[Rfam]
RNA sequence: UCCUGUAUCGAAAGUGAUCAUGGCGUCCUCGUCGCCAGGUCAUUGAUAGUACAGGAAGAUGAAGCUGGAAGCCUUUCCCGUGUUUGAAGGAUUCUCCGUUCCUAUCAGACCCUGGCGCUCCCAAACA
Numbered sequence: 001u002c003c004u005g006u007a008u009c010g011a012a013a014g015u016g017a018u019c020a021u022g023g024c025g026u027c028c029u030c031g032u033c034g035c036c037a038g039g040u041c042a043u044u045g046a047u048a049g050u051a052c053a054g055g056a057a058g059a060u061g062a063a064g065c066u067g068g069a070a071g072c073c074u075u076u077c078c079c080g081u082g083u084u085u086g087a088a089g090g091a092u093u094c095u096c097c098g099u100u101c102c103u104a105u106c107a108g109a110c111c112c113u114g115g116c117g118c119u120c121c122c123a124a125a126c127a
Base pairs, nucleotide, nucleotide: 001056002055003054004053005052006051007050008049013044014043015042016041017040018039019038022036023035024034025033066123067122068121070119071118072117082110083109084108085107086106088103089102090101091100
Shown here is a 127-nucleotide RNA from Dissostichus mawsoni, a member of the family "Small nucleolar RNA SNORA71". Rfam describes the family as follows. The members of this family belong to the H/ACA class of snoRNAs which bind a number of proteins (including dyskerin, Gar1p and Nop10p) to form snoRNP complexes. This class of snoRNAs are thought to guide the sites of modification of uridines to pseudouridines by forming direct base pairing interactions with substrate RNAs. This family includes U71 (SNORA71), ACA39 (SNORA39) and ACA60 (SNORA60). U71 and ACA60 are predicted to guide the pseudouridylation of U406 and U1004 in 18S rRNA respectively. There is currently no target RNA identified for ACA39. On this family, see Ganot et al., Genes Dev 1997: "The family of box ACA small nucleolar RNAs is defined by an evolutionarily conserved secondary structure and ubiquitous sequence elements essential for RNA accumulation". The family's RNA type in Rfam is H/ACA-box small nucleolar RNA. The source organism's lineage runs through Eukaryota, Chordata, Actinopterygii, Perciformes and Dissostichus. Gene Ontology terms of the family: RNA processing and nucleolus.